[Rfam]
RNA sequence: CCCACUGAGCCAUCUCACCAGCCCUAGUAUUAACUUUUAAAUUUAAAGAUUGCAGAGCUGGGGAGAUGGCUCUGUGGU
Numbered sequence: 001c002c003c004a005c006u007g008a009g010c011c012a013u014c015u016c017a018c019c020a021g022c023c024c025u026a027g028u029a030u031u032a033a034c035u036u037u038u039a040a041a042u043u044u045a046a047a048g049a050u051u052g053c054a055g056a057g058c059u060g061g062g063g064a065g066a067u068g069g070c071u072c073u074g075u076g077g078u
Stems, first nucleotide, its partner, number of pairs: 002077004007072010018061005024055001
RNA: mir-3473 microRNA precursor family
Organism: Mus spicilegus